[Rfam]
RNA: RNase MRP
Organism: Hevea brasiliensis
RNA sequence: UCACCGGGAGGUGGAGUGAUUGGGUGCAUCUGCUUCUACCCAGGAAAGUCCCCGGGCCCUUCCUGCAGAGAUGCAGUCCCGUAAUCGGGAAAAACUCGAGGCAUGGAAUUCAAUCGCAAUUGGCGAGGGGCCGAGACAAGUGUGGAGCCCUUGAAUUCUGUACUUGAGUCACAGUGGCCGUUGCUUCACAGUCAUUCACUCAGCCCGCUCUAGUGGGCCAACAGAACGGGGCUUACGACCUCCUGGUG
Numbered sequence: 001u002c003a004c005c006g007g008g009a010g011g012u013g014g015a016g017u018g019a020u021u022g023g024g025u026g027c028a029u030c031u032g033c034u035u036c037u038a039c040c041c042a043g044g045a046a047a048g049u050c051c052c053c054g055g056g057c058c059c060u061u062c063c064u065g066c067a068g069a070g071a072u073g074c075a076g077u078c079c080c081g082u083a084a085u086c087g088g089g090a091a092a093a094a095c096u097c098g099a100g101g102c103a104u105g106g107a108a109u110u111c112a113a114u115c116g117c118a119a120u121u122g123g124c125g126a127g128g129g130g131c132c133g134a135g136a137c138a139a140g141u142g143u144g145g146a147g148c149c150c151u152u153g154a155a156u157u158c159u160g161u162a163c164u165u166g167a168g169u170c171a172c173a174g175u176g177g178c179c180g181u182u183g184c185u186u187c188a189c190a191g192u193c194a195u196u197c198a199c200u201c202a203g204c205c206c207g208c209u210c211u212a213g214u215g216g217g218c219c220a221a222c223a224g225a226a227c228g229g230g231g232c233u234u235a236c237g238a239c240c241u242c243c244u245g246g247u248g
Base pairs, nucleotide, nucleotide: 002248003247004246005245006244007243008242009241010240011239014201015200016199017198018197019196022037023036024035026033027032046234047233048232050231051230052229053228064075065074066073067072077090078089079088080087081086104171105170106169110167111166112165113164116161117160118159128150129149130148131147138143203218204217205216206215207214208213